[Rfam]
RNA: Plastid-ccsA-ndhD-1 3UTR RNA
RNA sequence: AAGCUGGUGAGAACCAUUGGAAUCAAGUAGUAUAUUGAUUCACAUGGUUCUCACAAA
Numbered sequence: 001a002a003g004c005u006g007g008u009g010a011g012a013a014c015c016a017u018u019g020g021a022a023u024c025a026a027g028u029a030g031u032a033u034a035u036u037g038a039u040u041c042a043c044a045u046g047g048u049u050c051u052c053a054c055a056a057a
Base pairs, nucleotide, nucleotide: 007054008053009052010051011050012049013048014047015046016045017044020041021040022039023038024037025036